A member of the RNA family "mir-399 microRNA precursor family" from Salvia splendens, 96 nucleotides long. Pairs were carried over by alignment from the consensus structure, which was predicted with PFOLD. Rfam describes the family as follows. mir-399 was identified in both Arabidopsis thaliana and Oryza sativa computationally and was later experimentally verified. mir-399 is thought to target mRNAs coding for a phosphatase transporter. The mature sequence is excised from the 3' arm of the hairpin. It scores 63 bits against the family's covariance model. Its family is annotated with miRNA-mediated post-transcriptional gene silencing and RISC complex in the Gene Ontology. The literature on the family includes a 2004 paper in Mol Cell by Jones-Rhoades and Bartel, "Computational Identification of Plant MicroRNAs and Their Targets, Including a Stress-Induced miRNA". Lineage of the source: Eukaryota > Spermatophyta > Mesangiospermae > Nepetoideae > core Calosphace.
[Rfam]
Nucleotides: 096
Base pairs, nucleotide, nucleotide: 005092006091007090008089009088011086012085013084014083015082016081017079018078021076022075023074024073027070028069029068030067031066032065033064034063035062
Number, partner (000 for none) and nucleotide at each position: 001000a002000a003000a004000u005092g006091a007090g008089u009088u010000u011086u012085a013084g014083g015082g016081c017079a018078u019000c020000c021076c022075u023074c024073c025000u026000u027070u028069g029068g030067c031066a032065g033064a034063u035062g036000g037000u038000g039000a040000u041000u042000a043000u044000a045000u046000g047000u048000a049000a050000g051000u052000u053000u054000a055000u056000a057000u058000u059000g060000u061000g062035u063034a064033u065032u066031u067030g068029c069028c070027a071000a072000a073024g074023g075022a076021g077000a078018g079017u080000u081016g082015c083014c084013c085012u086011a087000a088009g089008a090007c091006u092005c093000u094000u095000u096000u